[Rfam]
The record is a 97-nucleotide RNA from Treponema vincentii, which matches "TD-2 RNA" in Rfam.
A reference for the family is Weinberg et al. (2007), "Identification of 22 candidate structured RNAs in bacteria using the CMfinder comparative genomics pipeline", Nucleic Acids Res.
The family has 36 seed sequences and 310 matches in Rfam 15.1.
The family's RNA type in Rfam is small RNA.
Taxonomically the source falls in Treponema vincentii (Bacteria, Pseudomonadati, Spirochaetia, Treponema).
RNA sequence: ACUGACAGGAUGUCAGUGGUUCCAUGCAGUAUCGAGUUUUUCUCAAGGAAAAACUCGAAGCAACCAAAUGUACAUGGAUGUAUAUUUGGUUGCGAUG
Numbered sequence: 001a002c003u004g005a006c007a008g009g010a011u012g013u014c015a016g017u018g019g020u021u022c023c024a025u026g027c028a029g030u031a032u033c034g035a036g037u038u039u040u041u042c043u044c045a046a047g048g049a050a051a052a053a054c055u056c057g058a059a060g061c062a063a064c065c066a067a068a069u070g071u072a073c074a075u076g077g078a079u080g081u082a083u084a085u086u087u088g089g090u091u092g093c094g095a096u097g
Base pairs, nucleotide, nucleotide: 001017002016003015004014005013006012033057034056035055036054037053038052039051040050041049042048043047060093061092062091063090064089065088066087067086068085069084070083071082072081073080